RNA: Cyano-1 RNA
RNA sequence: UUUAGUGUGAGGAGUAAGUGUAAAAGAGAAAGUCCUUGGGGUCGAAACACGGCAAGACUCCCAAGGCUUUUUCUUUUUU
Numbered sequence: 001u002u003u004a005g006u007g008u009g010a011g012g013a014g015u016a017a018g019u020g021u022a023a024a025a026g027a028g029a030a031a032g033u034c035c036u037u038g039g040g041g042u043c044g045a046a047a048c049a050c051g052g053c054a055a056g057a058c059u060c061c062c063a064a065g066g067c068u069u070u071u072u073c074u075u076u077u078u079u
Stems, first nucleotide, its partner, number of pairs: 027074005035066001038062003041058003